[Rfam]
This 247-nucleotide RNA sequence from Flexivirga endophytica belongs to the Rfam family "Actinobacteria sRNA Ms_IGR-5". The pairing is the family consensus, mapped onto this sequence. Rfam classes the family as a small RNA. Lineage of the source: Bacteria > Bacillati > Actinomycetes > Micrococcales > Flexivirga. For this family Rfam cites "Identification of small RNAs in Mycobacterium smegmatis using heterologous Hfq" (Li et al., RNA, 2013).
RNA sequence: ACACGAGAAAGGAGGUGGUCCAAGAGUGAAUUCUCAAAGGACGCGUGAGGUGGUUGCGCGCUAGCGCAACUGUCGAUUCGUCGCCGGCGGCCUCAGGUCGCCUGACGUAUUCGUCGCCGGCCACCUCCGGUGGACCGACGAAACGGACGUUCGGUAGCUACUCCAACGCAGCCACCGCGGCCCGUGGGUGUGCGAUCUCGUCCAUCGCACUUGCCGGCAUCGAGCCGGAGCCCACGGGCUGUCCCAU
Numbered sequence: 001a002c003a004c005g006a007g008a009a010a011g012g013a014g015g016u017g018g019u020c021c022a023a024g025a026g027u028g029a030a031u032u033c034u035c036a037a038a039g040g041a042c043g044c045g046u047g048a049g050g051u052g053g054u055u056g057c058g059c060g061c062u063a064g065c066g067c068a069a070c071u072g073u074c075g076a077u078u079c080g081u082c083g084c085c086g087g088c089g090g091c092c093u094c095a096g097g098u099c100g101c102c103u104g105a106c107g108u109a110u111u112c113g114u115c116g117c118c119g120g121c122c123a124c125c126u127c128c129g130g131u132g133g134a135c136c137g138a139c140g141a142a143a144c145g146g147a148c149g150u151u152c153g154g155u156a157g158c159u160a161c162u163c164c165a166a167c168g169c170a171g172c173c174a175c176c177g178c179g180g181c182c183c184g185u186g187g188g189u190g191u192g193c194g195a196u197c198u199c200g201u202c203c204a205u206c207g208c209a210c211u212u213g214c215c216g217g218c219a220u221c222g223a224g225c226c227g228g229a230g231c232c233c234a235c236g237g238g239c240u241g242u243c244c245c246a247u
Stems, first nucleotide, its partner, number of pairs: 015057005060158004065153001068151003178241012191209006